[Rfam]
RNA sequence: CUGACUGGCACAGGAUGCAGUACCUUAAGAGGCUAACACAGAAGGGGAAAGGAAAUCUCCGUAACACCCAGAAAAGAGUUUGAAAAACUCUUCUCUGGAUCCUGUCUGGGGUCACAGCU
Numbered sequence: 001c002u003g004a005c006u007g008g009c010a011c012a013g014g015a016u017g018c019a020g021u022a023c024c025u026u027a028a029g030a031g032g033c034u035a036a037c038a039c040a041g042a043a044g045g046g047g048a049a050a051g052g053a054a055a056u057c058u059c060c061g062u063a064a065c066a067c068c069c070a071g072a073a074a075a076g077a078g079u080u081u082g083a084a085a086a087a088c089u090c091u092u093c094u095c096u097g098g099a100u101c102c103u104g105u106c107u108g109g110g111g112u113c114a115c116a117g118c119u
Stems, first nucleotide, its partner, number of pairs: 001045002005041002013037001014034001016032001018029001057111005068098005074092001076090003080087002

The record is a 119-nucleotide sequence from Castor canadensis, which matches "Small nucleolar RNA SNORA26" in Rfam. Lineage of the source: Eukaryota > Bilateria > Mammalia > Glires > Castor. Its Rfam clan is "SNORA27 clan". The match comes from Rfam's covariance-model search (82 bits). Gene Ontology terms of the family: RNA processing and nucleolus. By type it is an H/ACA-box small nucleolar RNA. The literature on the family includes a 2001 paper in EMBO J by Huttenhofer et al., "RNomics: an experimental approach that identifies 201 candidates for novel, small, non-messenger RNAs in mouse".